[Rfam]
Rfam assigns this 76-nucleotide sequence from Parnassius apollo to the family "Mammalian CPEB3 ribozyme". It scores 40 bits against the family's covariance model. The source organism's lineage runs through Eukaryota, Pancrustacea, Hexapoda, Obtectomera and Parnassius.

RNA sequence: AUUAAAUUCAUUAGGUCAUUGUAGAAGCGUGCUCGUCGCGAUCCCUGCCAGCCCUUUUCAGAGCUGCAAUUCUACA
Numbered sequence: 001a002u003u004a005a006a007u008u009c010a011u012u013a014g015g016u017c018a019u020u021g022u023a024g025a026a027g028c029g030u031g032c033u034c035g036u037c038g039c040g041a042u043c044c045c046u047g048c049c050a051g052c053c054c055u056u057u058u059c060a061g062a063g064c065u066g067c068a069a070u071u072c073u074a075c076a
Stems, first nucleotide, its partner, number of pairs: 014044002016041002020076007027039003049066004054061002